[Rfam]
RNA sequence: GCCGGCGGGGAAACCGUUACCAUUACUGAGUUUAGUAAUGGUAACGGUUCUGCCGACGGCCGGCA
Number, nucleotide and partner (000 for none) at each position: 001g000002c000003c058004g057005g000006c055007g054008g053009g000010g000011a000012a049013a048014c047015c046016g000017u044018u043019a042020c041021c040022a039023u038024u037025a036026c035027u034028g033029a000030g000031u000032u000033u028034a027035g026036u025037a024038a023039u022040g021041g020042u019043a018044a017045c000046g015047g014048u013049u012050c000051u000052g000053c008054c007055g006056a000057c004058g003059g000060c000061c000062g000063g000064c000065a000
Description: This 65-nucleotide RNA belongs to the Rfam family "mir-451 microRNA precursor family".